[Rfam]
RNA sequence: GGAUGAGAGAUACACCCCGCCCGCAGGUGACUGCGGGUGGUUCAGGCCGGGGCCUCCCCAGCUUCGACCUGGUCGUGCCCUCGCGCACACAAACCGGGGCCUGCAGGCUUCGGGUCUCCUCACGAUCGGA
Numbered sequence: 001g002g003a004u005g006a007g008a009g010a011u012a013c014a015c016c017c018c019g020c021c022c023g024c025a026g027g028u029g030a031c032u033g034c035g036g037g038u039g040g041u042u043c044a045g046g047c048c049g050g051g052g053c054c055u056c057c058c059c060a061g062c063u064u065c066g067a068c069c070u071g072g073u074c075g076u077g078c079c080c081u082c083g084c085g086c087a088c089a090c091a092a093a094c095c096g097g098g099g100c101c102u103g104c105a106g107g108c109u110u111c112g113g114g115u116c117u118c119c120u121c122a123c124g125a126u127c128g129g130a
Stems, first nucleotide, its partner, number of pairs: 004122004009118002017040010042072005048066006075088004094113007123128001

This 130-nucleotide RNA sequence from Streptomyces calvus belongs to the Rfam family "Streptomyces RNA 5676". Rfam describes the family as follows. Identified by deep sequencing of transcriptome at the end of exponential growth phase. Appears longer on northern blot than sequencing transcript. This indicates processing step. NCBI's taxonomy places the organism under Bacteria, Bacillati, Actinomycetes, Streptomycetaceae, Streptomyces. Pairs were carried over by alignment from the consensus structure.